[Rfam]
RNA sequence: UAAAAAUUGAAUAAUAUCAUCCAUAUAAUUCUGAUAAUACGGUUCAGAAGUUUCUACGGGAGACCACAAAUUUCCUGCUAUGGGUGAAUCUGUUGCAUCU
Dot-bracket structure: .................((((((((...((((((.........))))))........((((((.......))))))..))))))))..............